A member of the RNA family "Small nucleolar RNA SNORA77" from Sphenodon punctatus, 133 nucleotides long. Gene Ontology terms of the family: nucleolus and RNA processing. The base pairs follow the family's consensus structure, which was predicted with RNAalifold. On this family, see Schattner et al., RNA 2006: "A computational screen for mammalian pseudouridylation guide H/ACA RNAs". ACA63 (SNORA77) is a member of the H/ACA class of snoRNAs that guide the sites of modification of uridines to pseudouridines. This snoRNA was identified by computational screening and its expression in mouse experimentally verified by Northern blot and primer extension analysis. ACA63 is proposed to guide the pseudouridylation of 18S rRNA U814.
[Rfam]
RNA sequence: GCAGACUCACUCUGUGCCUGACUGCAAUUUUCAGUCUAGGUGCUUUUUCAGCCUGCUAGAGCCAAUAGUCCAGGAUGUUGCGAACGCUUCUCUCUUUGUAGAAGGCUGUUGCAAUUGGUCGUGGGACACAUUU
Numbered sequence: 001g002c003a004g005a006c007u008c009a010c011u012c013u014g015u016g017c018c019u020g021a022c023u024g025c026a027a028u029u030u031u032c033a034g035u036c037u038a039g040g041u042g043c044u045u046u047u048u049c050a051g052c053c054u055g056c057u058a059g060a061g062c063c064a065a066u067a068g069u070c071c072a073g074g075a076u077g078u079u080g081c082g083a084a085c086g087c088u089u090c091u092c093u094c095u096u097u098g099u100a101g102a103a104g105g106c107u108g109u110u111g112c113a114a115u116u117g118g119u120c121g122u123g124g125g126a127c128a129c130a131u132u133u
Base pairs, nucleotide, nucleotide: 001056002055003054004053006051014043015042016041017040018039019038020037022034023033024032070124071123072122074120075119076118077115078114079113080112081111082110085108086106087105088104089103